[Rfam]
RNA sequence: UCAGAGGGCCGGGCGGCCGCCGGUGCAUUCGUGCACGGGAGGAAAGUCCGGGCUCCAAGGAGCAACGGUGCCGGGUAACGCCCGGCGAGAGCGAUCUUAGGGACAGUGCCACAGAAAACAGACCGCCCGCGCUUCGGCCGGGUCAGGGCGAAACGGUGCGGUAAGAGCGCACCGCGGACCGGGUAACCGGAACGGCACGGCAAACCCCACCGGGAGCAAGACCGAAUAGGGACGGCAUAUGGGCUGCUUCGCCCCGUCGUCCGGGUUGGUCGCUGGAGGCCGCGGGCAACCGUGGUCCUAGAGGAAUGGUCGCCCAUCCGUCGCCUUCGGGCGGUGGUGGACAGAACCCGGCUUACAGGCCCUCUGGCACU
Number, nucleotide and partner (000 for none) at each position: 001u367002c366003a365004g364005a363006g362007g361008g360009c359010c358011g356012g314013g313014c312015g311016g310017c309018c308019g000020c039021c038022g000023g036024u035025g034026c033027a032028u000029u000030c000031g000032u027033g026034c025035a024036c023037g000038g021039g020040a000041g000042g000043a000044a354045a353046g352047u000048c351049c350050g349051g348052g347053c216054u215055c214056c213057a000058a000059g000060g000061a000062g249063c000064a000065a000066c212067g211068g210069u209070g208071c085072c084073g083074g082075g081076u000077a000078a000079c000080g000081c075082c074083c073084g072085g071086c100087g098088a097089g096090a095091g000092c000093g000094a000095u090096c089097u088098u087099a000100g086101g207102g206103a000104c000105a000106g205107u204108g201109c200110c199111a000112c000113a000114g000115a000116a000117a000118a000119c000120a000121g000122a000123c147124c146125g143126c142127c141128c140129g139130c000131g000132c000133u000134u000135c000136g000137g000138c000139c129140g128141g127142g126143u125144c000145a000146g124147g123148g000149c000150g000151a000152a000153a000154c000155g173156g172157u171158g170159c169160g168161g000162u000163a000164a000165g000166a000167g000168c160169g159170c158171a157172c156173c155174g196175c194176g193177g000178a000179c190180c189181g188182g187183g000184u000185a000186a000187c182188c181189g180190g179191a000192a000193c176194g175195g000196c174197a000198c000199g110200g109201c108202a000203a000204a107205c106206c102207c101208c070209a069210c068211c067212g066213g056214g055215a054216g053217c000218a000219a000220g271221a270222c269223c268224g000225a000226a000227u000228a000229g000230g262231g261232a260233c259234g258235g257236c000237a000238u000239a000240u000241g255242g254243g253244c000245u251246g000247c000248u000249u062250c000251g245252c000253c243254c242255c241256g000257u235258c234259g233260u232261c231262c230263g000264g000265g000266u000267u000268g223269g222270u221271c220272g000273c000274u000275g000276g000277a000278g297279g296280c295281c294282g293283c292284g291285g290286g000287c000288a000289a000290c285291c284292g283293u282294g281295g280296u279297c278298c000299u000300a000301g000302a000303g000304g000305a000306a000307u000308g018309g017310u016311c015312g014313c013314c012315c000316a000317u000318c000319c000320g000321u000322c000323g000324c000325c000326u000327u000328c000329g000330g000331g000332c000333g000334g000335u000336g000337g000338u000339g000340g000341a000342c000343a000344g000345a000346a000347c052348c051349c050350g049351g048352c046353u045354u044355a000356c011357a000358g010359g009360c008361c007362c006363u005364c004365u003366g002367g001368c000369a000370c000371u000